[Rfam]
RNA sequence: GACACCCACUUCCUGCAACGGAUCGUCCGGCACGUUCCUGCCGGUAGAAGGGGGCCUGC
Numbered sequence: 001g002a003c004a005c006c007c008a009c010u011u012c013c014u015g016c017a018a019c020g021g022a023u024c025g026u027c028c029g030g031c032a033c034g035u036u037c038c039u040g041c042c043g044g045u046a047g048a049a050g051g052g053g054g055c056c057u058g059c
Stems, first nucleotide, its partner, number of pairs: 009051003013047003027044006
msiK RNA: a 59-nucleotide RNA sequence from Streptomyces shenzhenensis.
The match comes from Rfam's covariance-model search (53 bits).